[Rfam]
Shown here is a 133-nucleotide RNA from Brevibacillus centrosporus, a member of the family "c-di-AMP riboswitch aptamer (ydaO/yuaA leader)". The match comes from Rfam's covariance-model search (72 bits). This family represents a conserved RNA structure found upstream of the ydaO and yuaA genes in Bacillus subtilis and related genes in other bacteria.

RNA sequence: AUUAAAUACGGGCCUAGUUUCGUCUCAGACGAAAACGGGGGAACCAUCUUUGGGGUUAAUUCUGUGAAAACAGAAGGGAUGCAAACUGCCAUCCUACCCGUCAGCUAACCUCGUCGGCUAAAGCAGAUCAUGC
Numbered sequence: 001a002u003u004a005a006a007u008a009c010g011g012g013c014c015u016a017g018u019u020u021c022g023u024c025u026c027a028g029a030c031g032a033a034a035a036c037g038g039g040g041g042a043a044c045c046a047u048c049u050u051u052g053g054g055g056u057u058a059a060u061u062c063u064g065u066g067a068a069a070a071c072a073g074a075a076g077g078g079a080u081g082c083a084a085a086c087u088g089c090c091a092u093c094c095u096a097c098c099c100g101u102c103a104g105c106u107a108a109c110c111u112c113g114u115c116g117g118c119u120a121a122a123g124c125a126g127a128u129c130a131u132g133c
Base pairs, nucleotide, nucleotide: 011119012118013117014116018034019033020032021031022030035114036113037112038111039110040109045052046051053099054098055097061074062073063072064071077094078093079092080091